[Rfam]
RNA: drum RNA
RNA sequence: AGGCGCAAAAGCGGUUUUAUUGUGUUCAGAAGCAGUAUGCUGCCAGCCUCUGAAGGGUUUUCCGUAGACCUCAUCUGAACUAGGCGAAAGCCGAAAGAAAACGGAGAAA
Number, nucleotide and partner (000 for none) at each position: 001a049002g048003g047004c046005g000006c000007a000008a000009a000010a000011g043012c042013g041014g040015u039016u000017u000018u037019a036020u035021u034022g033023u032024g000025u000026u078027c077028a076029g075030a000031a000032g023033c022034a021035g020036u019037a018038u000039g015040c014041u013042g012043c011044c000045a000046g004047c003048c002049u001050c000051u000052g000053a000054a000055g000056g000057g000058u000059u000060u000061u000062c104063c103064g102065u000066a000067g000068a000069c000070c000071u000072c000073a000074u000075c029076u028077g027078a026079a000080c000081u000082a000083g092084g091085c090086g000087a000088a000089a000090g085091c084092c083093g000094a000095a000096a000097g000098a000099a000100a000101a000102c064103g063104g062105a000106g000107a000108a000109a000